[Rfam]
RNA sequence: UGUUAGUGCUGUGAAUAAGGCAGUAAGCGUGGCUGGGCUUUGGUUCAUGUUGCGCCGAUGAGUCGUCAUUGACCUAGUGUGACUCUGCCGAUAUAGAUUAGGCGCACUAACC
Numbered sequence: 001u002g003u004u005a006g007u008g009c010u011g012u013g014a015a016u017a018a019g020g021c022a023g024u025a026a027g028c029g030u031g032g033c034u035g036g037g038c039u040u041u042g043g044u045u046c047a048u049g050u051u052g053c054g055c056c057g058a059u060g061a062g063u064c065g066u067c068a069u070u071g072a073c074c075u076a077g078u079g080u081g082a083c084u085c086u087g088c089c090g091a092u093a094u095a096g097a098u099u100a101g102g103c104g105c106a107c108u109a110a111c112c
Stems, first nucleotide, its partner, number of pairs: 002111008019089004027055005036045003060085006067079005
A member of the RNA family "Methylophilales-1 RNA", 112 nucleotides long.